[Rfam]
RNA sequence: ACACGCGAAGGGAGGUGGUCCAACGCAUGAAUUGCUAUCGGACUCGUGAGGUGGCGGCGGGCUAACCGCCAACCACUAAAUGUGGGCAUGUGGUCGGCCAAUCCAACGCCAGCCACCGGGCCCGCGGGCAGUCAGGUCAGUCCGCCUGACCCAGAGUUCCGGCCACCCGGUCGGUGAUUCUGGAAGCGCCCGCGGGCUUCCUUAU
Numbered sequence: 001a002c003a004c005g006c007g008a009a010g011g012g013a014g015g016u017g018g019u020c021c022a023a024c025g026c027a028u029g030a031a032u033u034g035c036u037a038u039c040g041g042a043c044u045c046g047u048g049a050g051g052u053g054g055c056g057g058c059g060g061g062c063u064a065a066c067c068g069c070c071a072a073c074c075a076c077u078a079a080a081u082g083u084g085g086g087c088a089u090g091u092g093g094u095c096g097g098c099c100a101a102u103c104c105a106a107c108g109c110c111a112g113c114c115a116c117c118g119g120g121c122c123c124g125c126g127g128g129c130a131g132u133c134a135g136g137u138c139a140g141u142c143c144g145c146c147u148g149a150c151c152c153a154g155a156g157u158u159c160c161g162g163c164c165a166c167c168c169g170g171u172c173g174g175u176g177a178u179u180c181u182g183g184a185a186g187c188g189c190c191c192g193c194g195g196g197c198u199u200c201c202u203u204a205u
Stems, first nucleotide, its partner, number of pairs: 015058002018055002060099004065094002068091002073085003118199012132149006

Annotation:
The family of this 205-nucleotide RNA sequence from Kribbella antiqua is "Actinobacteria sRNA Ms_IGR-5". The organism belongs to Kribbella, within Bacteria.